[Rfam]
RNA sequence: GCCCGCCCGUGCAGCGUGGCCUCUGCCCGAGCCGACCCUGACGUACUUCCCCAACGCCAGGUUCGCGAUAUCGGACAGGGACCUCGCUGCGCAGACGGCCCGCC
Numbered sequence: 001g002c003c004c005g006c007c008c009g010u011g012c013a014g015c016g017u018g019g020c021c022u023c024u025g026c027c028c029g030a031g032c033c034g035a036c037c038c039u040g041a042c043g044u045a046c047u048u049c050c051c052c053a054a055c056g057c058c059a060g061g062u063u064c065g066c067g068a069u070a071u072c073g074g075a076c077a078g079g080g081a082c083c084u085c086g087c088u089g090c091g092c093a094g095a096c097g098g099c100c101c102g103c104c
Stems, first nucleotide, its partner, number of pairs: 010091007018083002021080005027074004032067001033065003037061004042056003